[Rfam]
RNA sequence: GAGCUAUGAAGAUUGUAAAGGAAUCUGAGAUUCUAUUGAAGACACGAGAUCCAACUCUGAGCUCACUAAAAAG
Number, nucleotide and partner (000 for none) at each position: 001g064002a063003g062004c061005u000006a000007u000008g000009a000010a000011g000012a000013u000014u000015g000016u000017a000018a000019a000020g000021g000022a000023a000024u000025c000026u000027g000028a000029g000030a000031u000032u000033c000034u000035a000036u000037u000038g000039a000040a000041g000042a000043c000044a000045c000046g000047a000048g000049a000050u000051c000052c000053a000054a000055c000056u000057c000058u000059g000060a000061g004062c003063u002064c001065a000066c000067u000068a000069a000070a000071a000072a000073g000
RNA: Small nucleolar RNA SNORD19
Organism: Regulus satrapa